[Rfam]
RNA sequence: UGGGUUCCUGCUUCAACAGUGCUUGAAUGGAACCCA
Numbered sequence: 001u002g003g004g005u006u007c008c009u010g011c012u013u014c015a016a017c018a019g020u021g022c023u024u025g026a027a028u029g030g031a032a033c034c035c036a
Stems, first nucleotide, its partner, number of pairs: 001036008010028001012027005017021001
RNA: Iron response element I